[Rfam]
RNA sequence: UGAAAACCCCCAUCACCGCAGUGGUGCCCCAACCAGGGACCACUUUGCCGUAUUCCGAAUUG
Number, nucleotide and partner (000 for none) at each position: 001u000002g000003a000004a000005a000006a000007c000008c000009c000010c000011c000012a000013u000014c000015a000016c000017c000018g046019c000020a044021g043022u042023g041024g040025u039026g000027c037028c036029c000030c000031a000032a000033c000034c000035a000036g028037g027038g000039a025040c024041c023042a022043c021044u020045u000046u018047g000048c000049c000050g000051u000052a000053u000054u000055c000056c000057g000058a000059a000060u000061u000062g000
About this RNA
Plastid-psbN 5UTR RNA: a 62-nucleotide sequence from Leptolyngbyaceae cyanobacterium LF-bin-369. On this family, see Richter et al., Plant Commun 2023: "Retrograde signaling in plants: A critical review focusing on the GUN pathway and beyond". From the family's description: Plastid psbN is a non-coding RNA (ncRNA) recognised in plastids. It was reported as a conserved 11 stem-loop in the prime untranslated region (5UTR) of psbN genes. The base pairs follow the family's consensus structure, which was predicted with LocARNA.